Small Nucleolar RNA SNORD64: a 69-nucleotide RNA from Cavia porcellus. The family is grouped with related families in Rfam's "SNORD74 clan". It is one of the family's seed sequences. For this family Rfam cites "The IC-SNURF-SNRPN transcript serves as a host for multiple small nucleolar RNA species and as an antisense RNA for UBE3A" (Runte et al., Hum Mol Genet, 2001). The family has 17 seed sequences and 130 matches in Rfam 15.1.
RNA sequence: GGACUGAUGAUGAGCUUUGUGUACUGAGUGUGAAUGAACAUGAGGUUCACUGUGAUUACUCUGAAGUUC
Numbered sequence: 001g002g003a004c005u006g007a008u009g010a011u012g013a014g015c016u017u018u019g020u021g022u023a024c025u026g027a028g029u030g031u032g033a034a035u036g037a038a039c040a041u042g043a044g045g046u047u048c049a050c051u052g053u054g055a056u057u058a059c060u061c062u063g064a065a066g067u068u069c
Stems, first nucleotide, its partner, number of pairs: 001069005012061003020055001025049005

Background
The organism belongs to Cavia, within Eukaryota. Rfam describes the family as follows. The human snoRNA HBII-13 belongs to the C/D family of snoRNAs. It is expressed mainly in the brain, but is also in the lungs, the kidneys and muscle. HBII-13 snoRNA has no identified RNA target and is encoded together with HBII-436, HBII-437, HBII-438A/B and the clusters of HBII-85, HBII-52 snoRNA in a 460 kb intron of the large, paternally expressed, transcription unit (SNURF-SNRNP-UBE3A AS). This is antisense to maternally expressed UBE3A gene (Runt et al., 2001).